Background:
This 137-nucleotide RNA sequence from Cricetulus griseus belongs to the Rfam family "Small nucleolar RNA SNORA47". Rfam classes the family as an H/ACA-box small nucleolar RNA. The family has 20 seed sequences and 733 matches in Rfam 15.1. A search with the family's covariance model found it, with a score of 139 bits. A reference for the family is Huttenhofer et al. (2001), "RNomics: an experimental approach that identifies 201 candidates for novel, small, non-messenger RNAs in mouse", EMBO J. The source organism's lineage runs through Eukaryota, Eutheria, Myomorpha, Muroidea and Cricetulus. Rfam links the family to the GO terms nucleolus and RNA processing.
RNA sequence: UGGAGGACUGAGAAGGUGGGGCAGCUCCAUACCAUGCUGCCUUCCAUCGGUUAAGACCUCCGAGAGUAAAGGGCUGGCCAGGCCAAGGAUGUCCCUCCACCACCUUGGAGGGGCAGCACUAUGCUGGCCCACAUUUU
Numbered sequence: 001u002g003g004a005g006g007a008c009u010g011a012g013a014a015g016g017u018g019g020g021g022c023a024g025c026u027c028c029a030u031a032c033c034a035u036g037c038u039g040c041c042u043u044c045c046a047u048c049g050g051u052u053a054a055g056a057c058c059u060c061c062g063a064g065a066g067u068a069a070a071g072g073g074c075u076g077g078c079c080a081g082g083c084c085a086a087g088g089a090u091g092u093c094c095c096u097c098c099a100c101c102a103c104c105u106u107g108g109a110g111g112g113g114c115a116g117c118a119c120u121a122u123g124c125u126g127g128c129c130c131a132c133a134u135u136u137u
Stems, first nucleotide, its partner, number of pairs: 002061005015048004019042007081129003086125002089122003097116001100113002103111002